Background: A member of the RNA family "M-box riboswitch aptamer (ykoK leader)" from Gottschalkia purinilytica, 161 nucleotides long. Pairs were carried over by alignment from the consensus structure. NCBI's taxonomy places the organism under Bacteria, Bacillati, Tissierellia, Tissierellales, Gottschalkia. M-box riboswitch, also know as ykoK leader is described as a metaloregulatory RNA that sense divalent metals and function as a genetic control element of genes related to divalent metal transport in bacteria. The literature on the family includes a 2004 paper in Proc Natl Acad Sci U S A by Barrick et al., "New RNA motifs suggest an expanded scope for riboswitches in bacterial genetic control".
RNA sequence: UAAGUACCUCGGUAGGUGAGGUUACUACAAGGAUAUGGGUUGCUGCCGUAAAAGAGUGGAGACACUCUGAACUGGUUAGCAGGUUCUGCCGAACUCAAGGCUUAACCUAAUGCAAUUUCACUGCCUUGCAGAGCCAAAACUUGAACGGGACGAUGUGUAUA
Numbered sequence: 001u002a003a004g005u006a007c008c009u010c011g012g013u014a015g016g017u018g019a020g021g022u023u024a025c026u027a028c029a030a031g032g033a034u035a036u037g038g039g040u041u042g043c044u045g046c047c048g049u050a051a052a053a054g055a056g057u058g059g060a061g062a063c064a065c066u067c068u069g070a071a072c073u074g075g076u077u078a079g080c081a082g083g084u085u086c087u088g089c090c091g092a093a094c095u096c097a098a099g100g101c102u103u104a105a106c107c108u109a110a111u112g113c114a115a116u117u118u119c120a121c122u123g124c125c126u127u128g129c130a131g132a133g134c135c136a137a138a139a140c141u142u143g144a145a146c147g148g149g150a151c152g153a154u155g156u157g158u159a160u161a
Base pairs, nucleotide, nucleotide: 005157006156007155009153010152011146013098015141016140017139020135021134022133025131026130028128029127030126031125032124039116040115041114042113043112046074048072049071055066056065057064058063082107083106084105085104088101089100090099
Dot-bracket structure: ....(((.(((.[.(((..(((..((.(((((......(((((..(.((.....((((....))))....)).).......((((..(((.......])))..))))....))))).......))))).)).)))...)))....).....)).)))....